A member of the RNA family "Small nucleolar RNA snoR14" from Rosa chinensis, 84 nucleotides long.
A reference for the family is Brown et al. (2001), "Multiple snoRNA gene clusters from Arabidopsis", RNA.
The source organism's lineage runs through Eukaryota, Euphyllophyta, eudicotyledons, fabids and Rosa.
Its Rfam clan is "SNORD110 clan".
Nucleotides: 084
Base pairs, nucleotide, nucleotide: 001084002083003082004081
Number, partner (000 for none) and nucleotide at each position: 001084g002083c003082g004081a005000a006000g007000u008000g009000a010000c011000g012000a013000u014000a015000g016000a017000a018000a019000u020000u021000c022000a023000u024000g025000u026000c027000u028000g029000u030000c031000a032000a033000u034000c035000c036000c037000c038000u039000g040000a041000c042000u043000u044000a045000c046000u047000g048000c049000u050000u051000g052000a053000u054000g055000u056000u057000a058000a059000c060000c061000u062000g063000a064000a065000u066000u067000g068000g069000c070000u071000g072000u073000g074000g075000u076000u077000c078000u079000g080000a081004u082003c083002g084001c
Its family is annotated with nucleolus and RNA processing in the Gene Ontology.